[Rfam]
Record summary
Rfam assigns this 60-nucleotide sequence from Mus spicilegus to the family "U7 small nuclear RNA". The family's consensus secondary structure was predicted with PFOLD.

RNA sequence: CAAACAUAAUUCUCUUAGAAUCUCUCUAGCAGAUUUUCUGACUAAAGUCAGAAAAUCAAG
Numbered sequence: 001c002a003a004a005c006a007u008a009a010u011u012c013u014c015u016u017a018g019a020a021u022c023u024c025u026c027u028a029g030c031a032g033a034u035u036u037u038c039u040g041a042c043u044a045a046a047g048u049c050a051g052a053a054a055a056u057c058a059a060g
Stems, first nucleotide, its partner, number of pairs: 032057011